[Rfam]
RNA sequence: UUCGUCAAAGGCAAACCCGGCGCGAGCCGGGGACGCAAAGUCACGGGACCCUCGCGGUCGGCCGGGCUACCGAAC
Number, nucleotide and partner (000 for none) at each position: 001u000002u000003c072004g071005u000006c000007a000008a000009a000010g000011g036012c035013a000014a000015a000016c031017c030018c029019g028020g027021c026022g000023c000024g000025a000026g021027c020028c019029g018030g017031g016032g000033a000034c061035g012036c011037a000038a000039a068040g067041u066042c065043a000044c064045g063046g062047g059048a058049c057050c000051c000052u000053c000054g000055c000056g000057g049058u048059c047060g000061g034062c046063c045064g044065g042066g041067c040068u039069a000070c000071c004072g003073a000074a000075c000
RNA: c-di-GMP-I-GGC riboswitch aptamer